[Rfam]
RNA sequence: GCAAGAGGAACAUCGGCUAAAGGCGUCACGUCCGCAUACCUUCGCCGAUGUGACCUACAUCCUGUGGG
Numbered sequence: 001g002c003a004a005g006a007g008g009a010a011c012a013u014c015g016g017c018u019a020a021a022g023g024c025g026u027c028a029c030g031u032c033c034g035c036a037u038a039c040c041u042u043c044g045c046c047g048a049u050g051u052g053a054c055c056u057a058c059a060u061c062c063u064g065u066g067g068g
Stems, first nucleotide, its partner, number of pairs: 011050007054068005
RNA: Bacillaceae-1 RNA
Organism: Peribacillus faecalis